[Rfam]
Annotation
small nucleolar RNA snoR137: a 142-nucleotide sequence from Eutrema salsugineum. The organism belongs to Eutrema, within Eukaryota.
RNA sequence: AUUGCUUCAUAAUGGUGAACUCUCUUAGAUAUUAAAGUGAGGGAUGUUCAAGUUUCCGGAGCAAAGAUCAAACUGGCCAGAAUUUAACAGCUCUGUGAUUUUAUCUCUAUUUUCACAGUGUUACCUGUCUUCUGGUAUAUAU
Numbered sequence: 001a002u003u004g005c006u007u008c009a010u011a012a013u014g015g016u017g018a019a020c021u022c023u024c025u026u027a028g029a030u031a032u033u034a035a036a037g038u039g040a041g042g043g044a045u046g047u048u049c050a051a052g053u054u055u056c057c058g059g060a061g062c063a064a065a066g067a068u069c070a071a072a073c074u075g076g077c078c079a080g081a082a083u084u085u086a087a088c089a090g091c092u093c094u095g096u097g098a099u100u101u102u103a104u105c106u107c108u109a110u111u112u113u114c115a116c117a118g119u120g121u122u123a124c125c126u127g128u129c130u131u132c133u134g135g136u137a138u139a140u141a142u
Stems, first nucleotide, its partner, number of pairs: 003063006016050005021044005076136007089122003093118005
Dot-bracket structure: ..((((((.......((((((((((..............))))).))))).......))))))............(((((((......(((.(((((................))))).))).......)))))))......
For this family Rfam cites "Mining small RNA sequencing data: a new approach to identify small nucleolar RNAs in Arabidopsis" (Chen and Wu, Nucleic Acids Res, 2009). The match comes from Rfam's covariance-model search (153 bits).